RNA sequence: GAUCCCGUGGUCCAGCGGCAACGACGGCUGGUUCACAUCCAGCGAACGAUGGUUCGAGUCCAUCCGGGAUCA
Numbered sequence: 001g002a003u004c005c006c007g008u009g010g011u012c013c014a015g016c017g018g019c020a021a022c023g024a025c026g027g028c029u030g031g032u033u034c035a036c037a038u039c040c041a042g043c044g045a046a047c048g049a050u051g052g053u054u055c056g057a058g059u060c061c062a063u064c065c066g067g068g069a070u071c072a
Stems, first nucleotide, its partner, number of pairs: 001071007010025003027043005048064005
Shown here is a 72-nucleotide RNA from Planctomycetaceae bacterium SCGC AG-212-F19, a member of the family "tRNA". The source organism's lineage runs through Bacteria, Pseudomonadati, Planctomycetia, Planctomycetales and Planctomycetaceae. A search with the family's covariance model found it, with a score of 56 bits. The base pairs follow the family's consensus structure, which is taken from published work. The family's RNA type in Rfam is transfer RNA.